[Rfam]
RNA sequence: GGAGUUGGCCGGACAGUCGCGGCCCCUUAGGGGGCGGAGGAAAGUCCGGGCUCCAUAGGGCAGGGUGCCAGGUAACACCUGGGCGGCGCGAGUCGACGGAAAGUGCAGCAGAAAAGAUACCGCCGAUGACUCCUUCGGGAGUACAGGUAAGGUUGAAAUGGUGCGGUAAGAGCGCACCGCGUCGGUGGCAACACUCGGCGGCAAGGUAAACCCCACCCGGAGCAAGACCAAAUAGGGGAGCUGAGGCGUGGCCCACGCUGCUCCCGGGUAGGUCGCUUCAGGUGCGUGGCGACACGCAUCGCAGAUGAAUGACUGUUCACGACAGAACCCGGCUUACAGGCCGACUCCCAAC
Numbered sequence: 001g002g003a004g005u006u007g008g009c010c011g012g013a014c015a016g017u018c019g020c021g022g023c024c025c026c027u028u029a030g031g032g033g034g035c036g037g038a039g040g041a042a043a044g045u046c047c048g049g050g051c052u053c054c055a056u057a058g059g060g061c062a063g064g065g066u067g068c069c070a071g072g073u074a075a076c077a078c079c080u081g082g083g084c085g086g087c088g089c090g091a092g093u094c095g096a097c098g099g100a101a102a103g104u105g106c107a108g109c110a111g112a113a114a115a116g117a118u119a120c121c122g123c124c125g126a127u128g129a130c131u132c133c134u135u136c137g138g139g140a141g142u143a144c145a146g147g148u149a150a151g152g153u154u155g156a157a158a159u160g161g162u163g164c165g166g167u168a169a170g171a172g173c174g175c176a177c178c179g180c181g182u183c184g185g186u187g188g189c190a191a192c193a194c195u196c197g198g199c200g201g202c203a204a205g206g207u208a209a210a211c212c213c214c215a216c217c218c219g220g221a222g223c224a225a226g227a228c229c230a231a232a233u234a235g236g237g238g239a240g241c242u243g244a245g246g247c248g249u250g251g252c253c254c255a256c257g258c259u260g261c262u263c264c265c266g267g268g269u270a271g272g273u274c275g276c277u278u279c280a281g282g283u284g285c286g287u288g289g290c291g292a293c294a295c296g297c298a299u300c301g302c303a304g305a306u307g308a309a310u311g312a313c314u315g316u317u318c319a320c321g322a323c324a325g326a327a328c329c330c331g332g333c334u335u336a337c338a339g340g341c342c343g344a345c346u347c348c349c350a351a352c
Stems, first nucleotide, its partner, number of pairs: 001348010011337001012317007020037001022035005042335003046332005051222004058254004063218005068082005083097001084095004098213002103211002105207002120152002122148003129142005160178006179202001180200005185194003226274004236265006245259005281300008
Rfam assigns this 352-nucleotide RNA from a Solemya pervernicosa gill symbiont to the family "Bacterial RNase P class A".
Lineage of the source: Bacteria > Pseudomonadati > Pseudomonadota > Gammaproteobacteria > sulfur-oxidizing symbionts.
Pairs were carried over by alignment from the consensus structure, which is taken from published work.
Ribonuclease P (RNase P) is a ubiquitous endoribonuclease, found in archaea, bacteria and eukarya as well as chloroplasts and mitochondria. Its best characterised activity is the generation of mature 5'-ends of tRNAs by cleaving the 5'-leader elements of precursor-tRNAs.